[Rfam]
RNA sequence: AGAGCGCUGGGGUUCCUGAGGACGCAGCCAACCUGCGAGCUUUCACGGAAGCUAUGACCAGGUAUUCUGCGCCCCCUGGGGACGAGCCGCGU
Numbered sequence: 001a002g003a004g005c006g007c008u009g010g011g012g013u014u015c016c017u018g019a020g021g022a023c024g025c026a027g028c029c030a031a032c033c034u035g036c037g038a039g040c041u042u043u044c045a046c047g048g049a050a051g052c053u054a055u056g057a058c059c060a061g062g063u064a065u066u067c068u069g070c071g072c073c074c075c076c077u078g079g080g081g082a083c084g085a086g087c088c089g090c091g092u
Base pairs, nucleotide, nucleotide: 006087007086008085010083013080014079015078018075020073021072027070028069030066031063032062033061034060035059038053039052040051041050042049043048
Dot-bracket structure: .....(((.(..(((..(.((.....((.((((((..((((((....)))))).....)))))..)..)).)).)..)))..).))).....